[Rfam]
Nucleotides: 110
Stems, first nucleotide, its partner, number of pairs: 001110008013043005021032003026083001028081001029079001044074004049070005078102001084099006
Number, partner (000 for none) and nucleotide at each position: 001110c002109a003108c004107u005106u006105a007104u008103c009000c010000u011000g012000a013043a014042a015041g016040g017039u018000g019000g020000a021032g022031a023030g024000a025000c026083c027000g028081g029079g030023c031022u032021c033000a034000a035000u036000g037000a038000u039017g040016c041015c042014u043013u044074g045073g046072c047071a048000a049070c050069c051068a052067a053066g054000a055000a056000g057000c058000u059000u060000u061000a062000c063000a064000u065000g066053c067052u068051u069050g070049g071047u072046g073045c074044c075000a076000a077000u078102u079029c080000c081028c082000g083026g084099c085098u086097c087096a088095g089094a090000g091000g092000u093000g094089u095088c096087u097086g098085a099084g100000g101000a102078a103008g104007a105006u106005a107004g108003g109002u110001g